[Rfam]
RNA: Transposase-1 RNA
RNA sequence: CUAUCAUAGUUAGUCACUGUCAUUAUCCUCUUGGAGGAUAUGGGAAUACUAAUGGUAA
Numbered sequence: 001c002u003a004u005c006a007u008a009g010u011u012a013g014u015c016a017c018u019g020u021c022a023u024u025a026u027c028c029u030c031u032u033g034g035a036g037g038a039u040a041u042g043g044g045a046a047u048a049c050u051a052a053u054g055g056u057a058a
Stems, first nucleotide, its partner, number of pairs: 009053006020043004027037003